[Rfam]
Nucleotides: 163
Base pairs, nucleotide, nucleotide: 010121011120012119013118014050016049017048020045023043024042028041029040051091052090055088058084059083061081062080063079064077065076094116095115098111099110100108101107136162137161138160139159140158144155145154146153147152
Number, partner (000 for none) and nucleotide at each position: 001000u002000u003000a004000c005000u006000g007000g008000u009000g010121g011120g012119u013118g014050g015000c016049g017048g018000a019000g020045a021000a022000g023043a024042g025000a026000u027000c028041g029040u030000g031000a032000c033000a034000u035000c036000g037000u038000a039000g040029a041028c042024c043023u044000a045020u046000g047000g048017c049016u050014u051091a052090g053000a054000u055088u056000g057000a058084u059083g060000a061081c062080c063079u064077c065076c066000a067000u068000u069000g070000c071000a072000c073000u074000u075000u076065g077064g078000a079063g080062g081061g082000g083059u084058g085000c086000c087000u088055g089000c090052c091051u092000a093000a094116a095115g096000u097000c098111u099110g100108c101107c102000c103000a104000a105000g106000u107101g108100g109000u110099c111098g112000a113000g114000c115095c116094u117000a118013c119012a120011c121010u122000a123000u124000a125000a126000u127000u128000u129000g130000u131000g132000a133000u134000a135000g136162u137161g138160g139159g140158g141000g142000c143000u144155u145154g146153c147152g148000u149000u150000c151000g152147c153146g154145c155144a156000g157000c158140c159139c160138c161137u162136a163000g
This 163-nucleotide RNA belongs to the Rfam family "U1 spliceosomal RNA". The base pairs follow the family's consensus structure, which is taken from published work. By type it is a spliceosomal small nuclear RNA. Rfam's curators write: U1 is a small nuclear RNA (snRNA) component of the spliceosome (involved in pre-mRNA splicing). Its 5' end forms complementary base pairs with the 5' splice junction, thus defining the 5' donor site of an intron. There are significant differences in sequence and secondary structure between metazoan and yeast U1 snRNAs, the latter being much longer (568 nucleotides as compared to 164 nucleotides in human). Nevertheless, secondary structure predictions suggest that all U1 snRNAs share a 'common core' consisting of helices I, II, the proximal region of III, and IV. This family does not contain the larger yeast sequences.